[Rfam]
RNA sequence: UGUUGAAUGAUGAUAAAAUCAGACGGAUUCCCACUGAUUUUGUAUAUGAUUUUACAACCAGCUACUACUGACAACA
Numbered sequence: 001u002g003u004u005g006a007a008u009g010a011u012g013a014u015a016a017a018a019u020c021a022g023a024c025g026g027a028u029u030c031c032c033a034c035u036g037a038u039u040u041u042g043u044a045u046a047u048g049a050u051u052u053u054a055c056a057a058c059c060a061g062c063u064a065c066u067a068c069u070g071a072c073a074a075c076a
Stems, first nucleotide, its partner, number of pairs: 001076005
Small nucleolar RNA R12: a 76-nucleotide sequence from Vigna radiata. Rfam links the family to the GO terms RNA processing and nucleolus. From the family's description: snoR12 is a C/D box small nucleolar RNA, which acts as a methylation guide for 25S ribosomal RNA in plants. snoR12 has been alternatively named snoZ44 in Arabidopsis and snoZ131 in rice. The family has 9 seed sequences and 992 matches in Rfam 15.1.